[Rfam]
RNA sequence: CGUAUCAUUGUGCUUCGUGCCCGAUUCGGCGCGGGGCGAUAAGUCCUGACACGAAAGGGAUGAUAUGAC
Number, nucleotide and partner (000 for none) at each position: 001c067002g066003u065004a064005u063006c062007a061008u060009u059010g000011u038012g037013c036014u035015u034016c033017g032018u031019g030020c000021c029022c028023g000024a000025u000026u000027c000028g022029g021030c019031g018032c017033g016034g015035g014036g013037c012038g011039a000040u000041a000042a000043g000044u000045c058046c057047u000048g000049a000050c000051a000052c000053g000054a000055a000056a000057g046058g045059g009060a008061u007062g006063a005064u004065a003066u002067g001068a000069c000
Rfam assigns this 69-nucleotide RNA from Bifidobacterium scaligerum to the family "SAM-VI (S-adenosyl methionine) riboswitch aptamer". The match comes from Rfam's covariance-model search (63 bits). NCBI's taxonomy places the organism under Bacteria, Bacillati, Bifidobacteriales, Bifidobacteriaceae, Bifidobacterium.